[Rfam]
RNA: NiCo (Nickel/Cobalt) riboswitch aptamer
RNA sequence: ACAGUACAAACUGAGCAGGCUGUGAAUGAAUUGAUUCAUUUAUGAGGCCGGGCCACAAAGGUGGCAGCAGAUUAUGACCAAUAUAACAUCUGUGGGACAGUA
Numbered sequence: 001a002c003a004g005u006a007c008a009a010a011c012u013g014a015g016c017a018g019g020c021u022g023u024g025a026a027u028g029a030a031u032u033g034a035u036u037c038a039u040u041u042a043u044g045a046g047g048c049c050g051g052g053c054c055a056c057a058a059a060g061g062u063g064g065c066a067g068c069a070g071a072u073u074a075u076g077a078c079c080a081a082u083a084u085a086a087c088a089u090c091u092g093u094g095g096g097a098c099a100g101u102a
Stems, first nucleotide, its partner, number of pairs: 010101004016096001018049004022043006052065005067093006